[Rfam]
RNA sequence: CCAGGGGCUCACGCGCCCUGGCUAAUAACGGUCGUCCCUUUGGGACU
Numbered sequence: 001c002c003a004g005g006g007g008c009u010c011a012c013g014c015g016c017c018c019u020g021g022c023u024a025a026u027a028a029c030g031g032u033c034g035u036c037c038c039u040u041u042g043g044g045a046c047u
Stems, first nucleotide, its partner, number of pairs: 001021006007014002034046005

Background: Rfam assigns this 47-nucleotide sequence from Pedosphaera parvula to the family "Acido-Lenti-1 RNA". Pairs were carried over by alignment from the consensus structure, which is taken from published work. The match comes from Rfam's covariance-model search (41 bits). The family has 87 seed sequences and 2,607 matches in Rfam 15.1.